Shown here is a 171-nucleotide sequence from Vibrio tapetis, a member of the family "Lysine riboswitch aptamer". The base pairs follow the family's consensus structure, which is taken from published work. The organism belongs to Vibrio tapetis, within Bacteria. A reference for the family is Mandal et al. (2003), "Riboswitches Control Fundamental Biochemical Pathways in Bacillus subtilis and Other Bacteria", Cell. The match comes from Rfam's covariance-model search (75 bits).
[Rfam]
RNA sequence: AGCUACAGAAGAGGAGCACUGCCUAGGGAAAUAACAUGUGGAGCCACAACUCCCACACAUGUUAUGGAUGGGGAGCCGUGCCGAGAUGAGUUGCACUUGUGGUGGUAACUUAUCGGUUAAUCAGGCUGAAUCCUAUUAACUGUCACCCUAAGGUGAAGCGCUUCUGAGAUA
Numbered sequence: 001a002g003c004u005a006c007a008g009a010a011g012a013g014g015a016g017c018a019c020u021g022c023c024u025a026g027g028g029a030a031a032u033a034a035c036a037u038g039u040g041g042a043g044c045c046a047c048a049a050c051u052c053c054c055a056c057a058c059a060u061g062u063u064a065u066g067g068a069u070g071g072g073g074a075g076c077c078g079u080g081c082c083g084a085g086a087u088g089a090g091u092u093g094c095a096c097u098u099g100u101g102g103u104g105g106u107a108a109c110u111u112a113u114c115g116g117u118u119a120a121u122c123a124g125g126c127u128g129a130a131u132c133c134u135a136u137u138a139a140c141u142g143u144c145a146c147c148c149u150a151a152g153g154u155g156a157a158g159c160g161c162u163u164c165u166g167a168g169a170u171a
Stems, first nucleotide, its partner, number of pairs: 006166006016081004021076002024073001031065007085114010115141007123134003143156005